[Rfam]
RNA sequence: CCGCAAUUCCUCCAAUUUUUGGCCGAAAAAUCGAUUUUCGUGAUUUUCGACCUCUGAAAGAAUUGCAAUAUAAGAUUAGCUCGAGAUGCGUGUACUGUUUUCGAAACUAAUAGAAAAUGGUUCCUUUUCUCCUCGGGACAUGC
Numbered sequence: 001c002c003g004c005a006a007u008u009c010c011u012c013c014a015a016u017u018u019u020u021g022g023c024c025g026a027a028a029a030a031u032c033g034a035u036u037u038u039c040g041u042g043a044u045u046u047u048c049g050a051c052c053u054c055u056g057a058a059a060g061a062a063u064u065g066c067a068a069u070a071u072a073a074g075a076u077u078a079g080c081u082c083g084a085g086a087u088g089c090g091u092g093u094a095c096u097g098u099u100u101u102c103g104a105a106a107c108u109a110a111u112a113g114a115a116a117a118u119g120g121u122u123c124c125u126u127u128u129c130u131c132c133u134c135g136g137g138a139c140a141u142g143c
Stems, first nucleotide, its partner, number of pairs: 003066006021052002024049005080137006088129001094121009
This 143-nucleotide sequence from Caenorhabditis angaria belongs to the Rfam family "Caenorhabditis snoRNA ceN104". The family's consensus secondary structure was predicted with RNAalifold. Rfam links the family to the GO terms RNA processing and nucleolus. A reference for the family is Jia et al. (2007), "Systematic identification of non-coding RNA 2,2,7-trimethylguanosine cap structures in Caenorhabditis elegans", BMC Mol Biol. Rfam classes the family as an H/ACA-box small nucleolar RNA. The organism belongs to Caenorhabditis, within Eukaryota.